[Rfam]
RNA: ALIL pseudoknot
Organism: Muricoccus pecuniae
RNA sequence: GGCCUAUUUCGCAGUGGCGGAGCUCGACCGCCGCUCGAAGCCAUGAUCGCCUUCAUCGACGAUCAUCGCGGGGUCUACGGUGUCGAGCCGAUCUGCAGGGUGCUGCCGAUCGCGCCG
Numbered sequence: 001g002g003c004c005u006a007u008u009u010c011g012c013a014g015u016g017g018c019g020g021a022g023c024u025c026g027a028c029c030g031c032c033g034c035u036c037g038a039a040g041c042c043a044u045g046a047u048c049g050c051c052u053u054c055a056u057c058g059a060c061g062a063u064c065a066u067c068g069c070g071g072g073g074u075c076u077a078c079g080g081u082g083u084c085g086a087g088c089c090g091a092u093c094u095g096c097a098g099g100g101u102g103c104u105g106c107c108g109a110u111c112g113c114g115c116c117g
Stems, first nucleotide, its partner, number of pairs: 016032005078117005089112002092109002095106004